[Rfam]
A member of the RNA family "FMN riboswitch aptamer (RFN element)" from Marinomonas piezotolerans, 160 nucleotides long.
RNA sequence: UUUCGUUCUCGGGGCGGGGCGCAAUUCCCCACCGGCGGUAACGAGUAUCAUACUCGAAGCCCGCGAGCGCUUGUGGAAUCAUUACCGUGGUUCAGCAAGGUCAGCAGAUCUGGUUAAAUUCCAGAGCCGACGGUUAUAGUCCGGAUGAUAGAGGACGCGU
Numbered sequence: 001u002u003u004c005g006u007u008c009u010c011g012g013g014g015c016g017g018g019g020c021g022c023a024a025u026u027c028c029c030c031a032c033c034g035g036c037g038g039u040a041a042c043g044a045g046u047a048u049c050a051u052a053c054u055c056g057a058a059g060c061c062c063g064c065g066a067g068c069g070c071u072u073g074u075g076g077a078a079u080c081a082u083u084a085c086c087g088u089g090g091u092u093c094a095g096c097a098a099g100g101u102c103a104g105c106a107g108a109u110c111u112g113g114u115u116a117a118a119u120u121c122c123a124g125a126g127c128c129g130a131c132g133g134u135u136a137u138a139g140u141c142c143g144g145a146u147g148a149u150a151g152a153g154g155a156c157g158c159g160u
Stems, first nucleotide, its partner, number of pairs: 004157007017029003031140002033129002035064004059127002067105002109125005131143003
The family's consensus secondary structure is taken from published work. Gene Ontology term of the family: FMN binding.